[Rfam]
RNA sequence: AGCGAGGCGUCCCUUGGGCUGGUGGCGUGUGCUCGGUGCCGUGCAAGAGGAGCCCCUGUCCUGCGUCGCCAGAGCC
Numbered sequence: 001a002g003c004g005a006g007g008c009g010u011c012c013c014u015u016g017g018g019c020u021g022g023u024g025g026c027g028u029g030u031g032c033u034c035g036g037u038g039c040c041g042u043g044c045a046a047g048a049g050g051a052g053c054c055c056c057u058g059u060c061c062u063g064c065g066u067c068g069c070c071a072g073a074g075c076c
Stems, first nucleotide, its partner, number of pairs: 002069004007064003016055005

This 76-nucleotide RNA sequence from Trypanosoma vivax belongs to the Rfam family "Trypanosomatid snoRNA TB11Cs4H3". The base pairs follow the family's consensus structure, which was predicted with WAR. On this family, see Liang et al., RNA 2005: "A genome-wide analysis of C/D and H/ACA-like small nucleolar RNAs in Trypanosoma brucei reveals a trypanosome-specific pattern of rRNA modification". Rfam classes the family as an H/ACA-box small nucleolar RNA.